[Rfam]
RNA sequence: GGCAUGUUAUAAUUUAUUAGAGGGAGGGGAAUUCCACCCCUCUGAAUUUACUUGUCCUUGUUUUUAUCUUUCUUGCGUAAUGUUAUCAGCGCUACUGCAAGAGUGAUAAUUUCGAGGACUGUUUUUAUUUCCUCUAAAACAUCCUUCACU
Numbered sequence: 001g002g003c004a005u006g007u008u009a010u011a012a013u014u015u016a017u018u019a020g021a022g023g024g025a026g027g028g029g030a031a032u033u034c035c036a037c038c039c040c041u042c043u044g045a046a047u048u049u050a051c052u053u054g055u056c057c058u059u060g061u062u063u064u065u066a067u068c069u070u071u072c073u074u075g076c077g078u079a080a081u082g083u084u085a086u087c088a089g090c091g092c093u094a095c096u097g098c099a100a101g102a103g104u105g106a107u108a109a110u111u112u113c114g115a116g117g118a119c120u121g122u123u124u125u126u127a128u129u130u131c132c133u134c135u136a137a138a139a140c141a142u143c144c145u146u147c148a149c150u
Stems, first nucleotide, its partner, number of pairs: 005148002018136006024042006054119007064109005070103007077095003081091003
RNA: Listeria sRNA rli48
Organism: Listeria monocytogenes